[Rfam]
RNA sequence: ACGUGUCACGGUCACCGUGCGUGGUGGCCGUGGCGACAGACAGAAGAGGGUGCCCGGGGAAGUUCCGGGCACUCCGAGGUGUU
Dot-bracket structure: ...(((((((((((((......)))))))))))))..............((((((((.......))))))))...........
RNA: nrdJ RNA